[Rfam]
RNA: Small nucleolar RNA SNORD71
RNA sequence: AGUUGGAGGAUGAAAAUACGGAGUGAUCCAUCGGCCAAAUGUUUUAUCACUAUGCUGAAACUCAAAUUGCUGACAGCACACG
Numbered sequence: 001a002g003u004u005g006g007a008g009g010a011u012g013a014a015a016a017u018a019c020g021g022a023g024u025g026a027u028c029c030a031u032c033g034g035c036c037a038a039a040u041g042u043u044u045u046a047u048c049a050c051u052a053u054g055c056u057g058a059a060a061c062u063c064a065a066a067u068u069g070c071u072g073a074c075a076g077c078a079c080a081c082g
Base pairs, nucleotide, nucleotide: 002077003076004075005071006070008029009028010027011026013024031058032057033056034055035054040049041048